RNA sequence: ACCGUCACGACCAUGUGACGUAAAGAGUCCGCCAUUUUGGACUCAUAAACUGAAAGGAAGAAAUCGAUG
Numbered sequence: 001a002c003c004g005u006c007a008c009g010a011c012c013a014u015g016u017g018a019c020g021u022a023a024a025g026a027g028u029c030c031g032c033c034a035u036u037u038u039g040g041a042c043u044c045a046u047a048a049a050c051u052g053a054a055a056g057g058a059a060g061a062a063a064u065c066g067a068u069g
Stems, first nucleotide, its partner, number of pairs: 003020007026043006
Source information
The record is a 69-nucleotide RNA from Ewingella americana, which matches "osmY RNA" in Rfam. The family's consensus secondary structure is taken from published work. Rfam classes the family as a small RNA. It scores 52 bits against the family's covariance model.